Small nucleolar RNA SNORD24: a 70-nucleotide RNA from Lepisosteus oculatus. The literature on the family includes a 2001 paper in Proc Natl Acad Sci U S A by Hirose and Steitz, "Position within the host intron is critical for efficient processing of box C/D snoRNAs in mammalian cells". Lineage of the source: Eukaryota > Craniata > Neopterygii > Holostei > Lepisosteus. The match comes from Rfam's covariance-model search (58 bits).
RNA sequence: UGCAGGUGAUGUUAUAAUAUUUGCUAUCAGAGUACUGCGUGCUGAUAUACCCACCAAGAUCGCUGAUGCA
Numbered sequence: 001u002g003c004a005g006g007u008g009a010u011g012u013u014a015u016a017a018u019a020u021u022u023g024c025u026a027u028c029a030g031a032g033u034a035c036u037g038c039g040u041g042c043u044g045a046u047a048u049a050c051c052c053a054c055c056a057a058g059a060u061c062g063c064u065g066a067u068g069c070a
Base pairs, nucleotide, nucleotide: 001070002069003068004067